[Rfam]
RNA sequence: GGCUCAGCUCUUGCAAAUACCCUCGCAACGGCAUCCAAAGACGGUUGCCACCGCACGACAAAGACGUCGC
Numbered sequence: 001g002g003c004u005c006a007g008c009u010c011u012u013g014c015a016a017a018u019a020c021c022c023u024c025g026c027a028a029c030g031g032c033a034u035c036c037a038a039a040g041a042c043g044g045u046u047g048c049c050a051c052c053g054c055a056c057g058a059c060a061a062a063g064a065c066g067u068c069g070c
Stems, first nucleotide, its partner, number of pairs: 030049004035044002
Description: Shown here is a 70-nucleotide sequence, a member of the family "narK RNA". Rfam's curators put it in the seed alignment. The family's RNA type in Rfam is cis-regulatory element.